A member of the RNA family "Small nucleolar RNA SNORA9" from Labrus bergylta, 135 nucleotides long. Its family is annotated with RNA processing and nucleolus in the Gene Ontology. By type it is an H/ACA-box small nucleolar RNA.
[Rfam]
RNA sequence: GUGCAGACCUUCCAGCGAGGCUCAGCCUGCAGUGGCUCUGAUCUUUCCUUCAAUGUCUGCUAGAGAGACGUGAGGCCGUUUGAGGCCCUGCUGUGUGCUCCUCAUGGCAGGGUUAUAGGUAAACCUCCGACAAAA
Numbered sequence: 001g002u003g004c005a006g007a008c009c010u011u012c013c014a015g016c017g018a019g020g021c022u023c024a025g026c027c028u029g030c031a032g033u034g035g036c037u038c039u040g041a042u043c044u045u046u047c048c049u050u051c052a053a054u055g056u057c058u059g060c061u062a063g064a065g066a067g068a069c070g071u072g073a074g075g076c077c078g079u080u081u082g083a084g085g086c087c088c089u090g091c092u093g094u095g096u097g098c099u100c101c102u103c104a105u106g107g108c109a110g111g112g113u114u115a116u117a118g119g120u121a122a123a124c125c126u127c128c129g130a131c132a133a134a135a
Stems, first nucleotide, its partner, number of pairs: 003060006018044003024037004072127004086112006093105003
ACA9 is a member of the H/ACA class of snoRNA that guide the sites of modification of uridines to pseudouridines. Lineage of the source: Eukaryota > Deuterostomia > Teleostei > Eurypterygia > Labrus.